[Rfam]
RNA sequence: UGUCUCCUCCACCCUCCUCCUUUGGUGGAUUUUGCCCAAAGCCGCAAGGUUUUGGGCUUUUUUU
Numbered sequence: 001u002g003u004c005u006c007c008u009c010c011a012c013c014c015u016c017c018u019c020c021u022u023u024g025g026u027g028g029a030u031u032u033u034g035c036c037c038a039a040a041g042c043c044g045c046a047a048g049g050u051u052u053u054g055g056g057c058u059u060u061u062u063u064u
Stems, first nucleotide, its partner, number of pairs: 008029006034057008